[Rfam]
RNA sequence: UUAGGUAACCGGUUGAGUAUCCUAACGGGCUUUUCAACCUGGCGCCCAUAAACCAUAGGAGAUAUGUUAGUGGCCCGUAUAGCUGGCAUUAACGUCCCUGAC
Numbered sequence: 001u002u003a004g005g006u007a008a009c010c011g012g013u014u015g016a017g018u019a020u021c022c023u024a025a026c027g028g029g030c031u032u033u034u035c036a037a038c039c040u041g042g043c044g045c046c047c048a049u050a051a052a053c054c055a056u057a058g059g060a061g062a063u064a065u066g067u068u069a070g071u072g073g074c075c076c077g078u079a080u081a082g083c084u085g086g087c088a089u090u091a092a093c094g095u096c097c098c099u100g101a102c
Base pairs, nucleotide, nucleotide: 004046005045006044009041011039012038013037021086022085026077027076028075029074034101035100036099
Alpha operon ribosome binding site: a 102-nucleotide sequence from Aliidiomarina taiwanensis. Lineage of the source: Bacteria > Pseudomonadati > Pseudomonadota > Idiomarinaceae > Aliidiomarina. It scores 75 bits against the family's covariance model. By type it is a cis-regulatory element. For this family Rfam cites "Translational repression of the Escherichia coli alpha operon mRNA: importance of an mRNA conformational switch and a ternary entrapment complex" (Schlax et al., J Biol Chem, 2001). From the family's description: The bacterial alpha operon ribosome binding site is surrounded by this complex pseudoknotted structure. Translation of the mRNA produces 4 ribosomal protein products, one of which (S4) acts as a translational repressor by binding to the nested pseudoknot region. The mechanism of repression is thought to involve a conformational switch in the pseudoknot region and ribosome entrapment.